[Rfam]
RNA sequence: CUCGCUCCUUGGCUUUGAGAACUGAAUUCCAUAGGCUUUAAAAGACAAAAAAAGCCCUAUGGAUUCAGUUCUGUAGCUGGGCGGCAAAUA
Numbered sequence: 001c002u003c004g005c006u007c008c009u010u011g012g013c014u015u016u017g018a019g020a021a022c023u024g025a026a027u028u029c030c031a032u033a034g035g036c037u038u039u040a041a042a043a044g045a046c047a048a049a050a051a052a053a054g055c056c057c058u059a060u061g062g063a064u065u066c067a068g069u070u071c072u073g074u075a076g077c078u079g080g081g082c083g084g085c086a087a088a089u090a
Base pairs, nucleotide, nucleotide: 008081009080011078012077013076018072019071020070021069022068023067024066025065034056035055036054
Dot-bracket structure: .......((.(((....((((((((........(((.................)))........))))))))...))).)).........
Annotation: This 90-nucleotide RNA from Alligator mississippiensis belongs to the Rfam family "mir-146 microRNA precursor family". It scores 74 bits against the family's covariance model. Lineage of the source: Eukaryota > Chordata > Sarcopterygii > Archelosauria > Alligator.